[Rfam]
RNA sequence: UACUUCUACGGAAAUGGUGUCUUCCGACUGAACCGCCUUAAAAAGCUGAUGGCGCCUGCAAAUUA
Number, nucleotide and partner (000 for none) at each position: 001u000002a000003c000004u000005u000006c000007u000008a000009c000010g025011g024012a023013a022014a000015u000016g056017g055018u054019g053020u052021c051022u013023u012024c011025c010026g000027a000028c000029u000030g000031a000032a000033c000034c000035g046036c045037c000038u043039u000040a000041a000042a000043a038044a000045g036046c035047u000048g000049a000050u000051g021052g020053c019054g018055c017056c016057u000058g000059c000060a000061a000062a000063u000064u000065a000

The record is a 65-nucleotide sequence from Mucilaginibacter auburnensis, which matches "Fluoride riboswitch aptamer (crcB RNA motif)" in Rfam. It scores 47 bits against the family's covariance model. The base pairs follow the family's consensus structure, which is taken from published work. The source organism's lineage runs through Bacteria, Pseudomonadati, Bacteroidota, Sphingobacteriia and Mucilaginibacter.